This 279-nucleotide RNA sequence from Onychostoma macrolepis belongs to the Rfam family "Small Cajal body specific RNA 6".
[Rfam]
Nucleotides: 279
Base pairs, nucleotide, nucleotide: 001279002278003277004276034259035258036257037256038255041236042235043234044233048229059220060219061218062217063129064128065127066126068124069123086113088111089110090109091108094104137197138196139195140194141193142192143191155183156182159179161177163175164174
Number, partner (000 for none) and nucleotide at each position: 001279g002278g003277u004276c005000a006000a007000u008000g009000a010000u011000g012000a013000g014000a015000u016000g017000u018000a019000a020000a021000a022000g023000g024000u025000c026000u027000g028000a029000u030000a031000u032000c033000c034259a035258g036257g037256u038255c039000u040000c041236c042235u043234c044233c045000c046000a047000g048229u049000c050000c051000u052000u053000c054000c055000g056000a057000c058000c059220c060219u061218c062217c063129c064128a065127g066126c067000a068124g069123c070000c071000c072000c073000u074000c075000u076000u077000c078000a079000c080000a081000u082000u083000u084000u085000c086113c087000c088111a089110g090109c091108a092000u093000g094104c095000u096000c097000u098000a099000g100000u101000u102000g103000u104094g105000c106000a107000u108091u109090g110089c111088u112000u113086g114000u115000u116000u117000g118000a119000g120000g121000u122000g123069g124068c125000g126066g127065c128064u129063g130000a131000u132000a133000c134000u135000a136000u137197g138196g139195a140194u141193g142192c143191u144000u145000u146000u147000g148000c149000u150000g151000a152000a153000u154000a155183a156182g157000a158000g159179u160000c161177u162000u163175u164174u165000a166000g167000a168000g169000a170000a171000c172000c173000g174164a175163g176000u177161g178000a179159g180000a181000c182156c183155u184000c185000g186000a187000c188000a189000g190000c191143a192142g193141c194140a195139u196138c197137c198000a199000a200000c201000a202000g203000a204000a205000c206000u207000a208000c209000a210000a211000c212000a213000c214000a215000a216000a217062g218061g219060a220059g221000g222000g223000c224000u225000g226000g227000a228000c229048g230000g231000g232000a233044g234043g235042a236041g237000a238000a239000c240000g241000u242000u243000a244000a245000a246000c247000u248000g249000g250000u251000g252000c253000a254000u255038g256037a257036u258035c259034u260000c261000a262000a263000g264000u265000u266000u267000u268000c269000a270000a271000g272000c273000u274000g275000a276004g277003a278002c279001c
For this family Rfam cites "Cajal body-specific small nuclear RNAs: a novel class of 2'-O-methylation and pseudouridylation guide RNAs" (Darzacq et al., EMBO J, 2002).
The family's consensus secondary structure is taken from published work.
The source organism's lineage runs through Eukaryota, Eumetazoa, Actinopteri, Otomorpha and Onychostoma.